[Rfam]
RNA sequence: GUUGUGAAAUAAUCAAUUGCAGAGCCUUGAAAAAGACUCCAAGUACAAUUUUUGCGAACCCUGUUCAAUUUGGAUAGGGUU
Numbered sequence: 001g002u003u004g005u006g007a008a009a010u011a012a013u014c015a016a017u018u019g020c021a022g023a024g025c026c027u028u029g030a031a032a033a034a035g036a037c038u039c040c041a042a043g044u045a046c047a048a049u050u051u052u053u054g055c056g057a058a059c060c061c062u063g064u065u066c067a068a069u070u071u072g073g074a075u076a077g078g079g080u081u
Stems, first nucleotide, its partner, number of pairs: 022039003026035003058080009